The record is a 134-nucleotide RNA sequence from Dactylosporangium sucinum, which matches "c-di-AMP riboswitch aptamer (ydaO/yuaA leader)" in Rfam. Pairs were carried over by alignment from the consensus structure.
RNA sequence: GUGAAUCCGCCGCCGAAUCGGUUUCGACCGAGCCGGGGACCCACCGAUUUCUGGGGUGAAUCCGCGUUCGCGGUAGGGCCACUGUUCCGUCCCGAACCCGUCAGCUAACUCGGUAGGCGGUGCGCGGAGGGACA
Numbered sequence: 001g002u003g004a005a006u007c008c009g010c011c012g013c014c015g016a017a018u019c020g021g022u023u024u025c026g027a028c029c030g031a032g033c034c035g036g037g038g039a040c041c042c043a044c045c046g047a048u049u050u051c052u053g054g055g056g057u058g059a060a061u062c063c064g065c066g067u068u069c070g071c072g073g074u075a076g077g078g079c080c081a082c083u084g085u086u087c088c089g090u091c092c093c094g095a096a097c098c099c100g101u102c103a104g105c106u107a108a109c110u111c112g113g114u115a116g117g118c119g120g121u122g123c124g125c126g127g128a129g130g131g132a133c134a
Stems, first nucleotide, its partner, number of pairs: 011119004018031003032114006042053002054099003062073004076093003
Dot-bracket structure: ..........((((...(((........)))((((((....((........))(((.....((((....))))..(((............)))...))).........)))))).))))...............